[Rfam]
Source information: A member of the RNA family "Bacterial RNase P class A" from Pajaroellobacter abortibovis, 481 nucleotides long. The organism belongs to Pajaroellobacter, within Bacteria. Ribonuclease P (RNase P) is a ubiquitous endoribonuclease, found in archaea, bacteria and eukarya as well as chloroplasts and mitochondria. Rfam classes the family as a ribozyme. Rfam links the family to the GO terms tRNA processing, ribonuclease P activity and dimeric ribonuclease P complex.
RNA sequence: UGAUGUCACAUAGGUUAUCGCUGGUCUAAUCUUAAAUCUAAUCCGCGUGGGUUAGAAAGGAGGACGAGAGGAAAGUCCGAGCUCCGUAGAGUACAAUGCCGGGUAACCCCCGGUGGCGGCAACGCUAAGGAAAGUGCCACAGAAAAAAGACCGCCUGACCCAGAGCUUGCAGCUUUUGAAAGCUCUGAACAAGGAAGGUAAGGGUGAAAAGGUGGAGUAAGAGCCCACCGCAUCUGCGGUAACGCUAGAUGGCAUGGUAAACCCCAUUGGGAGCAAGGCCGUGUAGGUAGGCAAGCGAUCAUCUGCACAUGGAUUGCAUCUCUCUCUCCUUUACAGGAGUAGAGAGGGAAGGGCUACUCGCUCGGGCCUACGGGUUGGCUGCUUGAGGUAGUCGGUAACGGCUAUCCUAGAGGAAUGAUAACUGUUGUUGUUCAGAUGACUGAAAGCAAUACAAAACUCGGCUUAUUUGCGGCAUUGACCA
Numbered sequence: 001u002g003a004u005g006u007c008a009c010a011u012a013g014g015u016u017a018u019c020g021c022u023g024g025u026c027u028a029a030u031c032u033u034a035a036a037u038c039u040a041a042u043c044c045g046c047g048u049g050g051g052u053u054a055g056a057a058a059g060g061a062g063g064a065c066g067a068g069a070g071g072a073a074a075g076u077c078c079g080a081g082c083u084c085c086g087u088a089g090a091g092u093a094c095a096a097u098g099c100c101g102g103g104u105a106a107c108c109c110c111c112g113g114u115g116g117c118g119g120c121a122a123c124g125c126u127a128a129g130g131a132a133a134g135u136g137c138c139a140c141a142g143a144a145a146a147a148a149g150a151c152c153g154c155c156u157g158a159c160c161c162a163g164a165g166c167u168u169g170c171a172g173c174u175u176u177u178g179a180a181a182g183c184u185c186u187g188a189a190c191a192a193g194g195a196a197g198g199u200a201a202g203g204g205u206g207a208a209a210a211g212g213u214g215g216a217g218u219a220a221g222a223g224c225c226c227a228c229c230g231c232a233u234c235u236g237c238g239g240u241a242a243c244g245c246u247a248g249a250u251g252g253c254a255u256g257g258u259a260a261a262c263c264c265c266a267u268u269g270g271g272a273g274c275a276a277g278g279c280c281g282u283g284u285a286g287g288u289a290g291g292c293a294a295g296c297g298a299u300c301a302u303c304u305g306c307a308c309a310u311g312g313a314u315u316g317c318a319u320c321u322c323u324c325u326c327u328c329c330u331u332u333a334c335a336g337g338a339g340u341a342g343a344g345a346g347g348g349a350a351g352g353g354c355u356a357c358u359c360g361c362u363c364g365g366g367c368c369u370a371c372g373g374g375u376u377g378g379c380u381g382c383u384u385g386a387g388g389u390a391g392u393c394g395g396u397a398a399c400g401g402c403u404a405u406c407c408u409a410g411a412g413g414a415a416u417g418a419u420a421a422c423u424g425u426u427g428u429u430g431u432u433c434a435g436a437u438g439a440c441u442g443a444a445a446g447c448a449a450u451a452c453a454a455a456a457c458u459c460g461g462c463u464u465a466u467u468u469g470c471g472g473c474a475u476u477g478a479c480c481a
Base pairs, nucleotide, nucleotide: 001477002476003475004474005473006472007471009469010468012466013423014422015421016420017419018418019417021068022067024065025064026063027062073464074463075462077461078460079459080458081457082273083272084271085270089359090358091357092356094269095268096267097266098265099113100112101111102110103109114128115126116125117124118123129264130263134262135261136258137257138256151203152202153199154198155197156196159193211229212228213227214226215225230253231251232250233249234248235247236245237244238243277380278379279378280377287371288370289369290368291367292366351363352362353361354360387406388405389404390403391402392401393400394399